[Rfam]
speF leader: a 146-nucleotide sequence from Allobosea sp. AAP35. On this family, see Corbino et al., Genome Biol 2005: "Evidence for a second class of S-adenosylmethionine riboswitches and other regulatory RNA motifs in alpha-proteobacteria". This family is a putative regulatory RNA structure that is found upstream of the speF gene encoding ornithine decarboxylase in Agrobacterium tumefaciens and other alpha-proteobacteria. It scores 40 bits against the family's covariance model.
RNA sequence: CGCUGGUCCUCCAAAGAUCAGCACCGAAGAGGCUUGUCCUUCAUUGCCGGGCGUGCGGGGGCUUCCCCAAGCGACGGUUACCAGGGUCCGGACGUUUCGUUCGGCAAAUCGCGGCGUUUCCAACGCGUCGUGUAUUGCUCGAUCGA
Dot-bracket structure: .(((((((.......)))))))........(((............)))......(((..................((..........)).......(.(((.....))).)............)))....................